The record is a 64-nucleotide RNA from Gorilla gorilla, which matches "mir-3689 microRNA precursor family" in Rfam. A search with the family's covariance model found it, with a score of 74 bits.
RNA sequence: GGGAGGUGUGAUACCGUGUUUCCUGGGAGGUGUGAUUCCUGGGAGGUGUGAUCCCGUGCUUCCU
Numbered sequence: 001g002g003g004a005g006g007u008g009u010g011a012u013a014c015c016g017u018g019u020u021u022c023c024u025g026g027g028a029g030g031u032g033u034g035a036u037u038c039c040u041g042g043g044a045g046g047u048g049u050g051a052u053c054c055c056g057u058g059c060u061u062c063c064u
Stems, first nucleotide, its partner, number of pairs: 001063005015050004020045010
Pairs were carried over by alignment from the consensus structure, which was predicted with RNAalifold. Rfam links the family to the GO terms miRNA-mediated post-transcriptional gene silencing and RISC complex.